RNA sequence: UUACCGAAAAGGCAAACCUGCUCGAAAGACAGGGACGCAAAGCCACGGAUCUAAUGCGAGCACCAGGAUCGCGAUGACCGCCGGGCUGCCGAA
Dot-bracket structure: ...........((...((((.((....))))))...))..((((.(((.((....((((.........))))...))...)))))))......
A member of the RNA family "c-di-GMP-I riboswitch aptamer" from Desulforamulus profundi, 93 nucleotides long. The base pairs follow the family's consensus structure, which is taken from published work. The organism belongs to Desulforamulus, within Bacteria.